[Rfam]
RNA sequence: AAUUCGGCAAAUUAGAUCCGUAACUUCGGGAUAAGGAUUGGCUCUGAUCGCCGCGUGGAUGGCAACCGCUGCGGACGUGCGUAGUUAUGUAUCCCAAAGCUGAGUAACUACCGGGCGGUAUUUACACACAGGUCGGUGGCGCCACCGAGGGGCAGCGGUGUCCCCAUCUAACCGGUCCCUCAUCGGUACAAGGAUUGACCCCCGGUCGUAACGCGUCUCGUGUGCUAGUGCAACGGGGGUGAUGCCGCGGACGAGCGUGGCGUGCGGGAUGCACGGGAGCUGCGGACGUGCGCAGUUAUGUAUCCACACCGCUUGUCACUCGCGUAAAAUACGGAACCGGGCGAGGGCUCUCCUGUACCCUGGUGCUACCGCGGGUGUCCCGGGACACGCAUCGGCUUUGAAAUCUGGUAUCCACACACGCGGCUAUAUUAGAACUGGCGCGGACAAC
Numbered sequence: 001a002a003u004u005c006g007g008c009a010a011a012u013u014a015g016a017u018c019c020g021u022a023a024c025u026u027c028g029g030g031a032u033a034a035g036g037a038u039u040g041g042c043u044c045u046g047a048u049c050g051c052c053g054c055g056u057g058g059a060u061g062g063c064a065a066c067c068g069c070u071g072c073g074g075a076c077g078u079g080c081g082u083a084g085u086u087a088u089g090u091a092u093c094c095c096a097a098a099g100c101u102g103a104g105u106a107a108c109u110a111c112c113g114g115g116c117g118g119u120a121u122u123u124a125c126a127c128a129c130a131g132g133u134c135g136g137u138g139g140c141g142c143c144a145c146c147g148a149g150g151g152g153c154a155g156c157g158g159u160g161u162c163c164c165c166a167u168c169u170a171a172c173c174g175g176u177c178c179c180u181c182a183u184c185g186g187u188a189c190a191a192g193g194a195u196u197g198a199c200c201c202c203c204g205g206u207c208g209u210a211a212c213g214c215g216u217c218u219c220g221u222g223u224g225c226u227a228g229u230g231c232a233a234c235g236g237g238g239g240u241g242a243u244g245c246c247g248c249g250g251a252c253g254a255g256c257g258u259g260g261c262g263u264g265c266g267g268g269a270u271g272c273a274c275g276g277g278a279g280c281u282g283c284g285g286a287c288g289u290g291c292g293c294a295g296u297u298a299u300g301u302a303u304c305c306a307c308a309c310c311g312c313u314u315g316u317c318a319c320u321c322g323c324g325u326a327a328a329a330u331a332c333g334g335a336a337c338c339g340g341g342c343g344a345g346g347g348c349u350c351u352c353c354u355g356u357a358c359c360c361u362g363g364u365g366c367u368a369c370c371g372c373g374g375g376u377g378u379c380c381c382g383g384g385a386c387a388c389g390c391a392u393c394g395g396c397u398u399u400g401a402a403a404u405c406u407g408g409u410a411u412c413c414a415c416a417c418a419c420g421c422g423g424c425u426a427u428a429u430u431a432g433a434a435c436u437g438g439c440g441c442g443g444a445c446a447a448c
Base pairs, nucleotide, nucleotide: 015039016038017037018036019035024029040436041435043433044432045431046430047429048428050424051423052422053421055415056414057413058412059411060410061409063407065119066118068116069115070114077108078107082102083101084100085099086098088096437441
This 448-nucleotide part of an RNA from Lotharella oceanica belongs to the Rfam family "Eukaryotic large subunit ribosomal RNA". The base pairs follow the family's consensus structure, which is taken from published work. The family is grouped with related families in Rfam's "LSU clan". Rfam's curators put it in the seed alignment. Taxonomically the source falls in Lotharella (Eukaryota, Sar, Cercozoa, Chlorarachniophyceae).